[Rfam]
RNA sequence: CUACCAGGCCGGGCCCCUCUGGCAGUCCAUCAGGACUGUGAUGUCGGACUGGACGU
Numbered sequence: 001c002u003a004c005c006a007g008g009c010c011g012g013g014c015c016c017c018u019c020u021g022g023c024a025g026u027c028c029a030u031c032a033g034g035a036c037u038g039u040g041a042u043g044u045c046g047g048a049c050u051g052g053a054c055g056u
Stems, first nucleotide, its partner, number of pairs: 006050002009047004022039007
Dot-bracket structure: .....((.((((.........(((((((....)))))))....)))).))......